[Rfam]
Rfam assigns this 211-nucleotide RNA sequence from Sphingomonas paeninsulae to the family "permuted transfer-messenger RNA". It scores 144 bits against the family's covariance model.

RNA sequence: GGUGAUAAAUGAUGCCGUAAAAUAGAUGCAGCGGACCCGGGGGCGGUACCCGGCGGCUCCACCAAAAUCAGCUUUUCGGCUGAUCCUGAUGGGGCCGAACUAGGAUCGACGUGUAUUGAAAGACGGUAUUUUUGCCGGGCCUGAAUGCGCCCUAAAACCGUUCAAAACGAUAAGUGCCAACGAUAACGAGGUACUCGCAAUCGCUGCAUAA
Numbered sequence: 001g002g003u004g005a006u007a008a009a010u011g012a013u014g015c016c017g018u019a020a021a022a023u024a025g026a027u028g029c030a031g032c033g034g035a036c037c038c039g040g041g042g043g044c045g046g047u048a049c050c051c052g053g054c055g056g057c058u059c060c061a062c063c064a065a066a067a068u069c070a071g072c073u074u075u076u077c078g079g080c081u082g083a084u085c086c087u088g089a090u091g092g093g094g095c096c097g098a099a100c101u102a103g104g105a106u107c108g109a110c111g112u113g114u115a116u117u118g119a120a121a122g123a124c125g126g127u128a129u130u131u132u133u134g135c136c137g138g139g140c141c142u143g144a145a146u147g148c149g150c151c152c153u154a155a156a157a158c159c160g161u162u163c164a165a166a167a168c169g170a171u172a173a174g175u176g177c178c179a180a181c182g183a184u185a186a187c188g189a190g191g192u193a194c195u196c197g198c199a200a201u202c203g204c205u206g207c208a209u210a211a
Stems, first nucleotide, its partner, number of pairs: 001136005015126004027115003031112003037053005054097007137152004